[Rfam]
RNA: Fluoride riboswitch aptamer (crcB RNA motif)
Organism: Erysipelotrichaceae bacterium RD49
RNA sequence: AACGAAAAGGGAAAUGAAGCACUUCCCGGAGUCUUUCCAAACCGCCAAUUUGGCUGAUGGCUUCUGCAGACUU
Dot-bracket structure: .........[[[[..(((((..]]]].................(((.....))).....))))).........
Numbered sequence: 001a002a003c004g005a006a007a008a009g010g011g012a013a014a015u016g017a018a019g020c021a022c023u024u025c026c027c028g029g030a031g032u033c034u035u036u037c038c039a040a041a042c043c044g045c046c047a048a049u050u051u052g053g054c055u056g057a058u059g060g061c062u063u064c065u066g067c068a069g070a071c072u073u
Stems, first nucleotide, its partner, number of pairs: 010026004016064005044054003